[Rfam]
RNA sequence: AUUAGUGCAGUGAUGAAGCAAUAUUGUGGACUAGAGUUUCUGAUAUUGGGCUCUUCUUCCCAUUUUAUUUUGACGACAAACCCUUGGCUGUCUGAGCACUAAC
Numbered sequence: 001a002u003u004a005g006u007g008c009a010g011u012g013a014u015g016a017a018g019c020a021a022u023a024u025u026g027u028g029g030a031c032u033a034g035a036g037u038u039u040c041u042g043a044u045a046u047u048g049g050g051c052u053c054u055u056c057u058u059c060c061c062a063u064u065u066u067a068u069u070u071u072g073a074c075g076a077c078a079a080a081c082c083c084u085u086g087g088c089u090g091u092c093u094g095a096g097c098a099c100u101a102a103c
Stems, first nucleotide, its partner, number of pairs: 002102007037075001039073002044067001045064001047062003